RNA: Eukaryotic large subunit ribosomal RNA, nucleotides 2053 to 2652
RNA sequence: AAGGGUUCCAUGUGAACAUCAGUUGGACAUGGGUUAGUCGCUCCUAAGCCCAAGGCUAAAGCCUUAUCCCACGCUAGAGGCAACGGCCAACCGAGUUGGUUAAGGUUGGUUGGUGCGUGUGUGUGUGUGUUGACGGGAGGGUUAGUUAUACUAUCGUACUCCUGAAUAUACAUGCAUACCACCACCACCACCACCAUCUUGACUGAGAUUUUUCAAAGUUGCUGAUUGGGAAUUUAGUGGCGAAAGGGAAUACGGUACUUAUUCCGUAACCAGGCCUGGAUGCCAACCGGGGCCAUGUUCGUUUACGGACUGGCCCUUGGUGCAGGAACCCGGUAACGGGAACCAACUCGCGUCCAUCGGCGGUGGUCCGGGGAAGAGUUUUCUUUUCUGUUUAAGGCGCCGUGACCCUAGAAGCCACUCGCAGAGCGAAAGGGUGUUGGUAACACGGUCUGCCGUAGAGCGCCGCGGUUCUUGCGGCGUCCCGCGUACCACUGCCGGUCCGUGAAACAUGCGAGGCAGGUAACUGCAUGGGGUAACAAGCGGGGGGGUCUGCUGCUGCGUCCUGCUGCUGUGCGCCUUCGGGCGUUCCGGCGCGGUGCA
Numbered sequence: 001a002a003g004g005g006u007u008c009c010a011u012g013u014g015a016a017c018a019u020c021a022g023u024u025g026g027a028c029a030u031g032g033g034u035u036a037g038u039c040g041c042u043c044c045u046a047a048g049c050c051c052a053a054g055g056c057u058a059a060a061g062c063c064u065u066a067u068c069c070c071a072c073g074c075u076a077g078a079g080g081c082a083a084c085g086g087c088c089a090a091c092c093g094a095g096u097u098g099g100u101u102a103a104g105g106u107u108g109g110u111u112g113g114u115g116c117g118u119g120u121g122u123g124u125g126u127g128u129g130u131u132g133a134c135g136g137g138a139g140g141g142u143u144a145g146u147u148a149u150a151c152u153a154u155c156g157u158a159c160u161c162c163u164g165a166a167u168a169u170a171c172a173u174g175c176a177u178a179c180c181a182c183c184a185c186c187a188c189c190a191c192c193a194c195c196a197u198c199u200u201g202a203c204u205g206a207g208a209u210u211u212u213u214c215a216a217a218g219u220u221g222c223u224g225a226u227u228g229g230g231a232a233u234u235u236a237g238u239g240g241c242g243a244a245a246g247g248g249a250a251u252a253c254g255g256u257a258c259u260u261a262u263u264c265c266g267u268a269a270c271c272a273g274g275c276c277u278g279g280a281u282g283c284c285a286a287c288c289g290g291g292g293c294c295a296u297g298u299u300c301g302u303u304u305a306c307g308g309a310c311u312g313g314c315c316c317u318u319g320g321u322g323c324a325g326g327a328a329c330c331c332g333g334u335a336a337c338g339g340g341a342a343c344c345a346a347c348u349c350g351c352g353u354c355c356a357u358c359g360g361c362g363g364u365g366g367u368c369c370g371g372g373g374a375a376g377a378g379u380u381u382u383c384u385u386u387u388c389u390g391u392u393u394a395a396g397g398c399g400c401c402g403u404g405a406c407c408c409u410a411g412a413a414g415c416c417a418c419u420c421g422c423a424g425a426g427c428g429a430a431a432g433g434g435u436g437u438u439g440g441u442a443a444c445a446c447g448g449u450c451u452g453c454c455g456u457a458g459a460g461c462g463c464c465g466c467g468g469u470u471c472u473u474g475c476g477g478c479g480u481c482c483c484g485c486g487u488a489c490c491a492c493u494g495c496c497g498g499u500c501c502g503u504g505a506a507a508c509a510u511g512c513g514a515g516g517c518a519g520g521u522a523a524c525u526g527c528a529u530g531g532g533g534u535a536a537c538a539a540g541c542g543g544g545g546g547g548g549u550c551u552g553c554u555g556c557u558g559c560g561u562c563c564u565g566c567u568g569c570u571g572u573g574c575g576c577c578u579u580c581g582g583g584c585g586u587u588c589c590g591g592c593g594c595g596g597u598g599c600a
Stems, first nucleotide, its partner, number of pairs: 003589002008032006017025002039585003043247002048241002052064001054063003073234001075232001251268005271581001273579002319577005325570001329340004347515006356499004361494007369484003372392002375389003396454004405435005416424001461479007